[Rfam]
RNA: Bacterial small signal recognition particle RNA
Organism: Virgisporangium aurantiacum
RNA sequence: CACCUCUCGUGCGGCGUCACCCCGCUAACUCCCCCAGGGCCGGAAGGCAGCAAGGGUAACCGGGCUCUGGCGGGUGCACGAGAGGCCUUU
Numbered sequence: 001c002a003c004c005u006c007u008c009g010u011g012c013g014g015c016g017u018c019a020c021c022c023c024g025c026u027a028a029c030u031c032c033c034c035c036a037g038g039g040c041c042g043g044a045a046g047g048c049a050g051c052a053a054g055g056g057u058a059a060c061c062g063g064g065c066u067c068u069g070g071c072g073g074g075u076g077c078a079c080g081a082g083a084g085g086c087c088u089u090u
Base pairs, nucleotide, nucleotide: 003085004084005083006082007081008080009079010078011077012074015072016071017070018069019068021064022063023062024061026059031056032055033054039048040047041046